mir-29 microRNA precursor family: a 67-nucleotide sequence from Bombyx mori. Rfam's curators put it in the seed alignment. About the family: This family represents the microRNA (miRNA) precursors mir-29.

[Rfam]
RNA sequence: UGACAACUGUAUUCGAGUGUGUGGAAGAGUUUUAAAAAUCCUCUAGCACCAUUCGAAUUCAGUGCUC
Number, nucleotide and partner (000 for none) at each position: 001u000002g066003a000004c000005a063006a000007c062008u061009g060010u000011a058012u057013u056014c055015g054016a000017g052018u051019g050020u048021g047022u000023g000024g000025a000026a044027g043028a042029g000030u000031u000032u000033u000034a000035a000036a000037a000038a000039u000040c000041c000042u028043c027044u026045a000046g000047c021048a020049c000050c019051a018052u017053u000054c015055g014056a013057a012058u011059u000060c009061a008062g007063u005064g000065c000066u002067c000